[Rfam]
RNA sequence: GGGCUGUAGCUACAUUAAAUACGGAUGAGAAGUUAACUGGCCGGUUGUUUGAGAUUCAUAAUGGAUCUCUAUAGACAUAUCUGCUUACCGAACUUCUUACAACU
Number, nucleotide and partner (000 for none) at each position: 001g000002g000003g000004c000005u000006g000007u000008a000009g000010c000011u000012a000013c000014a000015u000016u000017a000018a000019a000020u000021a000022c000023g000024g000025a000026u000027g098028a097029g096030a095031a094032g093033u092034u091035a000036a000037c000038u000039g085040g084041c083042c000043g081044g080045u079046u000047g076048u075049u074050u073051g000052a000053g000054a000055u000056u000057c000058a000059u000060a000061a000062u000063g000064g000065a000066u000067c000068u000069c000070u000071a000072u000073a050074g049075a048076c047077a000078u000079a045080u044081c043082u000083g041084c040085u039086u000087a000088c000089c000090g000091a034092a033093c032094u031095u030096c029097u028098u027099a000100c000101a000102a000103c000104u000
RNA: Small nucleolar RNA snoR109